[Rfam]
RNA sequence: CCAACCGAAGCGUCUCGCAGGGCGUGCUCUGUGGAGAUAGUGUUUCCGGUAGAGCACUGAUAGGGCGGCGCGGGGGAGAGAUCCCUCACCGUCCAUUCAAACUCCGAACGGAUACACAUCGUAGAAGCAGGGACACGGGUUCGUGUGGCGUAAGGCUCACGACCGAAAGGGGUUUAACCCAGACUAGAGUUAAGGUCCCCAAAUUCUUGCUAAGUGUCAAGCAAAAGAGCGUAUUCUCGCCAAGACAGCAGGGAGGUAAGCUCAGAAGCAGCUAUCCUUUAAAAAGUGUGUAACAACUUACCUGCCGAGGGAGGGUGCCUCAAAAACGGACGGGGCUAAAGCAAGGUACCGAUACUCUGGACGGCCGCCGGUAUAGGCGGCCGUGGUAGGUUGGCGUAGUGAUUGGGUCGAAGCAGGGCGGUGACGUCCUGUGGACCGGUUUCUAUUGCAGAU
Numbered sequence: 001c002c003a004a005c006c007g008a009a010g011c012g013u014c015u016c017g018c019a020g021g022g023c024g025u026g027c028u029c030u031g032u033g034g035a036g037a038u039a040g041u042g043u044u045u046c047c048g049g050u051a052g053a054g055c056a057c058u059g060a061u062a063g064g065g066c067g068g069c070g071c072g073g074g075g076g077a078g079a080g081a082u083c084c085c086u087c088a089c090c091g092u093c094c095a096u097u098c099a100a101a102c103u104c105c106g107a108a109c110g111g112a113u114a115c116a117c118a119u120c121g122u123a124g125a126a127g128c129a130g131g132g133a134c135a136c137g138g139g140u141u142c143g144u145g146u147g148g149c150g151u152a153a154g155g156c157u158c159a160c161g162a163c164c165g166a167a168a169g170g171g172g173u174u175u176a177a178c179c180c181a182g183a184c185u186a187g188a189g190u191u192a193a194g195g196u197c198c199c200c201a202a203a204u205u206c207u208u209g210c211u212a213a214g215u216g217u218c219a220a221g222c223a224a225a226a227g228a229g230c231g232u233a234u235u236c237u238c239g240c241c242a243a244g245a246c247a248g249c250a251g252g253g254a255g256g257u258a259a260g261c262u263c264a265g266a267a268g269c270a271g272c273u274a275u276c277c278u279u280u281a282a283a284a285a286g287u288g289u290g291u292a293a294c295a296a297c298u299u300a301c302c303u304g305c306c307g308a309g310g311g312a313g314g315g316u317g318c319c320u321c322a323a324a325a326a327c328g329g330a331c332g333g334g335g336c337u338a339a340a341g342c343a344a345g346g347u348a349c350c351g352a353u354a355c356u357c358u359g360g361a362c363g364g365c366c367g368c369c370g371g372u373a374u375a376g377g378c379g380g381c382c383g384u385g386g387u388a389g390g391u392u393g394g395c396g397u398a399g400u401g402a403u404u405g406g407g408u409c410g411a412a413g414c415a416g417g418g419c420g421g422u423g424a425c426g427u428c429c430u431g432u433g434g435a436c437c438g439g440u441u442u443c444u445a446u447u448g449c450a451g452a453u
Stems, first nucleotide, its partner, number of pairs: 001394006011024005026134001027132006036120003040117004045112003052105001053103002059098002063094006072087006138164002141162005147157002169180003184360007194350003203347001205346006227321003231318008240309001248305005254278003259273003279283001284299001288297002361384007395448001397445003401441006413432008
Dot-bracket structure: ((((((....(((((....))))).(((((((...(((.((((.(((....(((....((..((((((...((((((....)))))).))))))..))...)).)....))).)))))))......)))))).)...((.(((((.((.......)))))))))....(((......)))...(((((((...(((......(.((((((................(((.((((((((.(.......(((((.(((..(((.........)))..)))(...)(...((......)).).)))))...).)))))))))))...................))))))))))...)))))))(((((((..........)))))))....))))))(.(((.((((((......((((((((....))))))))...)))))).)))..).....
Archaeal large subunit ribosomal RNA: a 453-nucleotide part of an RNA from a Nitrosopumilaceae archaeon. The organism belongs to Nitrosopumilaceae, within Archaea.